[Rfam]
RNA sequence: GGAGUCGGCCAGGCAGUCGCUGCAUCCUCGGAUGUGGAGGAAAGUCCGGGCUCCAUAGGGCAGGACGCCAGGUAACGCCUGGGCGGCGCGAGCCGACGGAAAGUGCCGCAGAAAAUACACCGCCGAUGGUCCGGUUCGCCGGGUACAGGUAAGGGUGAAAUGGUGCGGUAAGAGCGCACCGCGCGACUGGUAACAGUUCGUGGCAGGGUAAACCCCGUCCGGAGCAAGGCCAAAUAGGGGUGCAUGGUGUGGCCCGCAUCGCACCCGGGUAGGCUGCUCGAGGCGUCCGGUGACGGACGUCCCAGAUGAAUGACUGUCCUCGACAGAACCCGGCUUACGGCCGGCUCCCACU
Dot-bracket structure: ((((((((((.(((((((.(((((((....)))))))....[[[.[[[[[((((...[[[[.((((((((((.....)))))(((((....)))).)((...(((((............(((((..((..((.........))..)))))..)).......((((((.......))))))(((((((((....))).))))).)..)))..)))))))))))))...((((......((((((..(((((.]]]]))))))))))).....))))......((((((((....))))))))..........)))))))..........]]]]]]]]..))))))))))....
The family of this 352-nucleotide sequence from Thioalkalivibrio versutus is "Bacterial RNase P class A". The match comes from Rfam's covariance-model search (326 bits). By type it is a ribozyme. Its family is annotated with tRNA processing, dimeric ribonuclease P complex and ribonuclease P activity in the Gene Ontology.